[Rfam]
RNA sequence: UGAAGUGUUUCCUAAAUUCUCACGCACACCGUCACGUGAUUCUGGGUGCCCGAAAGGGGUUGGAUCAUGGGGAGUGCGGAGGCCUAAC
Numbered sequence: 001u002g003a004a005g006u007g008u009u010u011c012c013u014a015a016a017u018u019c020u021c022a023c024g025c026a027c028a029c030c031g032u033c034a035c036g037u038g039a040u041u042c043u044g045g046g047u048g049c050c051c052g053a054a055a056g057g058g059g060u061u062g063g064a065u066c067a068u069g070g071g072g073a074g075u076g077c078g079g080a081g082g083c084c085u086a087a088c
Stems, first nucleotide, its partner, number of pairs: 023078005029072002035069008048060004